[Rfam]
RNA: mir-219 microRNA precursor family
Organism: Orchesella cincta
Nucleotides: 086
Stems, first nucleotide, its partner, number of pairs: 002085006009077004014073004021066005027060005
Number, partner (000 for none) and nucleotide at each position: 001000g002085g003084a004083a005082g006081c007080u008000u009077u010076g011075a012074u013000u014073g015072u016071c017070c018000a019000a020000a021066c022065g023064c024063a025062a026000u027060u028059c029058u030057u031056g032000a033000a034000g035000a036000c037000a038000u039000g040000c041000u042000g043000c044000g045000a046000u047000a048000c049000c050000g051000u052000a053000g054000c055000u056031c057030a058029a059028g060027a061000u062025u063024u064023g065022u066021g067000u068000g069000g070017g071016g072015a073014c074012a075011u076010c077009a078000u079000c080007a081006g082005c083004u084003u085002u086000c